This 100-nucleotide RNA from Pipistrellus kuhlii belongs to the Rfam family "mir-9261 microRNA precursor family". A search with the family's covariance model found it, with a score of 92 bits. NCBI's taxonomy places the organism under Eukaryota, Eumetazoa, Bilateria, Teleostomi, Pipistrellus. The family has 3 seed sequences and 196 matches in Rfam 15.1. Rfam links the family to the GO terms miRNA-mediated post-transcriptional gene silencing and RISC complex.

RNA sequence: AACAAUUUGUCCCGCGUCUCGCGGCGUUUUAAAACAGUCCCGAUUUUGGGAAAGAUCGGGACUGUUUUAAAACGCCGCGGGACGCGGGACAAAUUGUUAA
Numbered sequence: 001a002a003c004a005a006u007u008u009g010u011c012c013c014g015c016g017u018c019u020c021g022c023g024g025c026g027u028u029u030u031a032a033a034a035c036a037g038u039c040c041c042g043a044u045u046u047u048g049g050g051a052a053a054g055a056u057c058g059g060g061a062c063u064g065u066u067u068u069a070a071a072a073c074g075c076c077g078c079g080g081g082a083c084g085c086g087g088g089a090c091a092a093a094u095u096g097u098u099a100a
Stems, first nucleotide, its partner, number of pairs: 001098041